The family of this 134-nucleotide sequence from Otolemur garnettii is "U11 spliceosomal RNA".
The family has 72 seed sequences and 2,595 matches in Rfam 15.1.
The source organism's lineage runs through Eukaryota, Deuterostomia, Teleostomi, Strepsirrhini and Otolemur.
Rfam classes the family as a spliceosomal small nuclear RNA.
The literature on the family includes a 1988 paper in Proc Natl Acad Sci U S A by Montzka and Steitz, "Additional low-abundance human small nuclear ribonucleoproteins: U11, U12, etc".
RNA sequence: AAAAUGGGCUUCUGUCAUGAUUGGCGCACAUGGGGCAACUCAACUGCUCUUUGUGUGGAAUCAGCAUCAAGAGAUUUCAGAAGCAUAAUUUUUUGGUACCUGGGCAGCUGGUGAUCAUUGAUCCUGGCACCUGU
Numbered sequence: 001a002a003a004a005u006g007g008g009c010u011u012c013u014g015u016c017a018u019g020a021u022u023g024g025c026g027c028a029c030a031u032g033g034g035g036c037a038a039c040u041c042a043a044c045u046g047c048u049c050u051u052u053g054u055g056u057g058g059a060a061u062c063a064g065c066a067u068c069a070a071g072a073g074a075u076u077u078c079a080g081a082a083g084c085a086u087a088a089u090u091u092u093u094u095g096g097u098a099c100c101u102g103g104g105c106a107g108c109u110g111g112u113g114a115u116c117a118u119u120g121a122u123c124c125u126g127g128c129a130c131c132u133g134u
Stems, first nucleotide, its partner, number of pairs: 008084005013026005027055004032050006056079007102132003107128005113123004